[Rfam]
RNA sequence: CGGUCUCUUGCUUCAACAGUGCUUGAAUGGAGCCC
Numbered sequence: 001c002g003g004u005c006u007c008u009u010g011c012u013u014c015a016a017c018a019g020u021g022c023u024u025g026a027a028u029g030g031a032g033c034c035c
Base pairs, nucleotide, nucleotide: 002035003034005032006031007030008029010028012027013026014025015024016023017021
RNA: Iron response element I
Organism: Loxodonta africana